[Rfam]
RNA sequence: UCCUUAUCAAGAGUGACGGAGGGAACAGGCCCGAUGAUGUCCGACAACCUGCGCUUCGGGUGCAAGGUGCCAAUUCCUGCGGUAGAUGCCGAUAGAUGAGGU
Numbered sequence: 001u002c003c004u005u006a007u008c009a010a011g012a013g014u015g016a017c018g019g020a021g022g023g024a025a026c027a028g029g030c031c032c033g034a035u036g037a038u039g040u041c042c043g044a045c046a047a048c049c050u051g052c053g054c055u056u057c058g059g060g061u062g063c064a065a066g067g068u069g070c071c072a073a074u075u076c077c078u079g080c081g082g083u084a085g086a087u088g089c090c091g092a093u094a095g096a097u098g099a100g101g102u
Base pairs, nucleotide, nucleotide: 002101003100004099005098006097007096008095013042015041016040017039021032022031023030026079027078028077029076043071045069046068048067049066050064051063052062053061075094080091081090082089083088

This 102-nucleotide sequence from Ruminococcaceae bacterium BL-6 belongs to the Rfam family "SAM riboswitch aptamer (S box leader)". The organism belongs to Oscillospiraceae, within Bacteria. Gene Ontology term of the family: regulation of gene expression. The match comes from Rfam's covariance-model search (78 bits).